[Rfam]
RNA sequence: AGCCUCUGAUGUACAUUUUAGAGUAGUGGACAGAAGGGAUUUCUGAAAACUCCGUACUGAGGCU
Numbered sequence: 001a002g003c004c005u006c007u008g009a010u011g012u013a014c015a016u017u018u019u020a021g022a023g024u025a026g027u028g029g030a031c032a033g034a035a036g037g038g039a040u041u042u043c044u045g046a047a048a049a050c051u052c053c054g055u056a057c058u059g060a061g062g063c064u
Stems, first nucleotide, its partner, number of pairs: 001064004
Dot-bracket structure: ((((........................................................))))